RNA sequence: AAGGCGCAUUGAGAGUCGGGGUAACCCGAGCCAACCUGCCCCCGGGGCAAGGUGGAUCGCGAAAGCGGAUGUGGCCACUUUGGCAACCAAGCCGGACAUC
Numbered sequence: 001a002a003g004g005c006g007c008a009u010u011g012a013g014a015g016u017c018g019g020g021g022u023a024a025c026c027c028g029a030g031c032c033a034a035c036c037u038g039c040c041c042c043c044g045g046g047g048c049a050a051g052g053u054g055g056a057u058c059g060c061g062a063a064a065g066c067g068g069a070u071g072u073g074g075c076c077a078c079u080u081u082g083g084c085a086a087c088c089a090a091g092c093c094g095g096a097c098a099u100c
Stems, first nucleotide, its partner, number of pairs: 006072005017028004031055002035052003038048003043095001045093001074084004